[Rfam]
RNA: Small nucleolar RNA SNORA68
Organism: Ictidomys tridecemlineatus
RNA sequence: CCUGCACCUCAACCCAAGAAUUGCUGUUUCUCGUAGCAGUGGUUUAAACAGAGGUGCUCACAGCAAGUGGAUCUCGUCGCCUUUGAGAGGCUGUGGCUGUGCCCCUCAAAGUGAAUUUGGAGGUUCUACACUC
Dot-bracket structure: ...((((((.........((((((((((......)))))))))).......))))))...........(((((((.....(((((((.(((.........))).)))))))........))))))).......
Numbered sequence: 001c002c003u004g005c006a007c008c009u010c011a012a013c014c015c016a017a018g019a020a021u022u023g024c025u026g027u028u029u030c031u032c033g034u035a036g037c038a039g040u041g042g043u044u045u046a047a048a049c050a051g052a053g054g055u056g057c058u059c060a061c062a063g064c065a066a067g068u069g070g071a072u073c074u075c076g077u078c079g080c081c082u083u084u085g086a087g088a089g090g091c092u093g094u095g096g097c098u099g100u101g102c103c104c105c106u107c108a109a110a111g112u113g114a115a116u117u118u119g120g121a122g123g124u125u126c127u128a129c130a131c132u133c
Stems, first nucleotide, its partner, number of pairs: 004057006019044010069126007081111007089103003